[Rfam]
RNA sequence: GUGACAUCUUACUAACAGUAUUUGACAAACUACUUUCUAAUACUGUUAGGUAAAGAUGCCAGC
Numbered sequence: 001g002u003g004a005c006a007u008c009u010u011a012c013u014a015a016c017a018g019u020a021u022u023u024g025a026c027a028a029a030c031u032a033c034u035u036u037c038u039a040a041u042a043c044u045g046u047u048a049g050g051u052a053a054a055g056a057u058g059c060c061a062g063c
Stems, first nucleotide, its partner, number of pairs: 002061002005058004009053005015046008024037002

The record is a 63-nucleotide RNA sequence from Schistosoma mansoni, which matches "mir-8/mir-141/mir-200 microRNA precursor family" in Rfam. It is one of the family's seed sequences. The source organism's lineage runs through Eukaryota, Opisthokonta, Rhabditophora, Neodermata and Schistosoma. Its Rfam clan is "mir-8 microRNA precursor clan". Its family is annotated with miRNA-mediated post-transcriptional gene silencing and RISC complex in the Gene Ontology.